[Rfam]
Nucleotides: 121
Stems, first nucleotide, its partner, number of pairs: 011107002014104001018023001024102006034042002043087003051063004066081004
Number, partner (000 for none) and nucleotide at each position: 001000a002000g003000a004000c005000g006000c007000a008000g009000a010000c011107u012106g013000g014104u015000g016000a017000g018023u019000c020000u021000g022000g023018a024102g025101c026100g027099g028098g029097g030000g031000a032000a033000c034042c035041a036000a037000a038000c039000a040000u041035u042034g043087g044086g045085g046000c047000g048000u049000a050000u051063u052062u053061c054060c055000g056000u057000g058000a059000u060054g061053g062052a063051a064000a065000u066081g067080g068079a069078c070000a071000u072000c073000u074000c075000u076000c077000u078069g079068u080067c081066c082000u083000a084000g085045c086044c087043c088000g089000g090000c091000a092000g093000c094000u095000a096000a097029c098028c099027u100026c101025g102024u103000a104014a105000g106012c107011a108000u109000g110000g111000a112000g113000a114000g115000a116000a117000g118000a119000c120000u121000g

Shown here is a 121-nucleotide RNA sequence from Elainella sp. C42_A2020_010, a member of the family "c-di-AMP riboswitch aptamer (ydaO/yuaA leader)". Rfam links the family to the GO terms regulation of gene expression and cyclic-di-AMP binding. Rfam describes the family as follows. This family represents a conserved RNA structure found upstream of the ydaO and yuaA genes in Bacillus subtilis and related genes in other bacteria. The ydaO/yuaA element is thought to act as a genetic 'off' switch for the ydaO and yuaA genes in its native state. It is believed that the element may be triggered during osmotic shock leading to activation of ydaO, a predicted amino acid transporter gene, and members of the yuaA-yubG operon which code for KtrA and KtrB K+ transporters.